[Rfam]
RNA sequence: UAGAACAAUGUAGAUAAGGGAAGUCGGCAAAAUGGGUUCGUAACUUCGGGAAAAGAACUGGCUCUGAGGGUUGGGCCUAGGGAACUGCGGCCAAAAACCGAGGGCUGUCCGGACGUCUGCCCGAGCCGCCCCGUGUGGCGAGGGCGGACUCCGGCGUGCCCGAGGCGGGAGGCCAUAGUAAGCUUCGGCGCUCCCUAGGCGACGAACAACCGACUCAGAACUGGUACGGACAAGGGGAAUCCGACUGUUUAAUUAAAACAAAGCAUUGUGAUGGUCCUAAAGGAUGCUGACACAAUGUGAUUUCUGCCCAGUGCUCUGAAUGUCAAAGUGAAGAAAUUCAACCAAGCGCGGGUAAACGGCGGGAGUAACUAUGACUCUCUUAAGGUAGCCAAAUGCCUCGUCAUCUAAUUAGUGACGCGCAUGAAUGGAUUAACGAGAUUCCCACUGUCCCUAUCUACUAUCUAGCGAAACCACAGCCAAGGGAACGGGCUUGGAA
Dot-bracket structure: ((((.....(((((((.(((..............(((((....(....).....)))))((.(((((((((((.((((((((((((..(((......((..((((...(((((.((((((((..(((((.....)))))..)))))))))))))...))))..))......)))..)))............)))))))))......)))))..)))))).))(...).......(((((((((..(((.........)))..((((((((...((((....)))).....))))))))...(((.(((..((((((.(..(((.....((((....)))).....))))))))..)))))((((((.......))))))(...)...............(((((.......)))))..........)))....)).)))))))....))).)))))))..))))............(((((........)))))..
The family of this 496-nucleotide part of an RNA from Coccomyxa subellipsoidea is "Eukaryotic large subunit ribosomal RNA". A reference for the family is Yusupov et al. (2001), "Crystal structure of the ribosome at 5.5 A resolution", Science. Lineage of the source: Eukaryota > core chlorophytes > Coccomyxaceae > Coccomyxa > Coccomyxa subellipsoidea.